[Rfam]
RNA sequence: CCCAGUAGUAGUCAGCUGGGCAGGCCAGUCCUGUGCCUGAGCUAGUGUUACUCUGCUGGGAGAGAAUAGCAGUGCCACACGGACUCAGGGCUGGAGCUGCUGUUUUUGUGGCUGUUGCUGUGAGAGUUAGGUGGUGCUGUGCGCCCUCUGAGAGUGGGUAGUGUCCAGCUGUGGAUACUGCCCUAGUCUGGAGGCAAACAAC
Numbered sequence: 001c002c003c004a005g006u007a008g009u010a011g012u013c014a015g016c017u018g019g020g021c022a023g024g025c026c027a028g029u030c031c032u033g034u035g036c037c038u039g040a041g042c043u044a045g046u047g048u049u050a051c052u053c054u055g056c057u058g059g060g061a062g063a064g065a066a067u068a069g070c071a072g073u074g075c076c077a078c079a080c081g082g083a084c085u086c087a088g089g090g091c092u093g094g095a096g097c098u099g100c101u102g103u104u105u106u107u108g109u110g111g112c113u114g115u116u117g118c119u120g121u122g123a124g125a126g127u128u129a130g131g132u133g134g135u136g137c138u139g140u141g142c143g144c145c146c147u148c149u150g151a152g153a154g155u156g157g158g159u160a161g162u163g164u165c166c167a168g169c170u171g172u173g174g175a176u177a178c179u180g181c182c183c184u185a186g187u188c189u190g191g192a193g194g195c196a197a198a199c200a201a202c
Base pairs, nucleotide, nucleotide: 001060002059003058004057005056006055007054008053011051012050015046016045017044018043019042021039022038023037024036025035069137070136071135073133074132075131076130083127084126085125086124089119090118091117093115095113096112097111098110099109100108140196141195142194144193146191147190156183157182158181160179161178162177163176164175165174166173
Annotation: The family of this 202-nucleotide RNA sequence from Chanos chanos is "Small nucleolar RNA SNORA74". The family has 24 seed sequences and 1,348 matches in Rfam 15.1. The base pairs follow the family's consensus structure, which was predicted with PFOLD. On this family, see Ganot et al., Genes Dev 1997: "The family of box ACA small nucleolar RNAs is defined by an evolutionarily conserved secondary structure and ubiquitous sequence elements essential for RNA accumulation". The family is grouped with related families in Rfam's "SNORA74 clan". Rfam describes the family as follows. U19 belongs to the H/ACA class of snoRNAs. snoRNAs bind a number of proteins (including dyskerin, Gar1p and Nop10p in the case of the H/ACA class) to form snoRNP complexes. This class are thought to guide the sites of modification of uridines to pseudouridines by forming direct base pairing interactions with substrate RNAs. It is annotated as an H/ACA-box small nucleolar RNA.